[Rfam]
RNA: Ruegeria cis52 sRNA
Organism: Tritonibacter horizontis
RNA sequence: UGCGCAGGGCGUGUUUCAGCACGAUGUUGGGGAAACUCACCCCUUUGAGCCGCGCCGUGCGCACAUAUUGCGCUGUCAUGACCUCUGUCAUCGAGGCGCGGGUCAUGCGGGCGAUAUAGCCCAUGCCAUAAAGCGCGAUGGUCAGCACCGGCAAAAAGAAAUUUUCAAAGGUCGGGUUU
Numbered sequence: 001u002g003c004g005c006a007g008g009g010c011g012u013g014u015u016u017c018a019g020c021a022c023g024a025u026g027u028u029g030g031g032g033a034a035a036c037u038c039a040c041c042c043c044u045u046u047g048a049g050c051c052g053c054g055c056c057g058u059g060c061g062c063a064c065a066u067a068u069u070g071c072g073c074u075g076u077c078a079u080g081a082c083c084u085c086u087g088u089c090a091u092c093g094a095g096g097c098g099c100g101g102g103u104c105a106u107g108c109g110g111g112c113g114a115u116a117u118a119g120c121c122c123a124u125g126c127c128a129u130a131a132a133g134c135g136c137g138a139u140g141g142u143c144a145g146c147a148c149c150g151g152c153a154a155a156a157a158g159a160a161a162u163u164u165u166c167a168a169a170g171g172u173c174g175g176g177u178u179u
Stems, first nucleotide, its partner, number of pairs: 005140002009136004014131002016128001019126003028123004038113001040111003046105003050101005055075001057073005082096004145179001147177001148175005154165004